[Rfam]
RNA sequence: CUGAGGGCUGGCGAUGGAUCCCGCCGGAGCAUCCGCUCGAACCGCCCACCGCUAAUGGUUCCUAUCCUCUU
Numbered sequence: 001c002u003g004a005g006g007g008c009u010g011g012c013g014a015u016g017g018a019u020c021c022c023g024c025c026g027g028a029g030c031a032u033c034c035g036c037u038c039g040a041a042c043c044g045c046c047c048a049c050c051g052c053u054a055a056u057g058g059u060u061c062c063u064a065u066c067c068u069c070u071u
Base pairs, nucleotide, nucleotide: 010025011024012023013022016062017061018060020058021057044052045051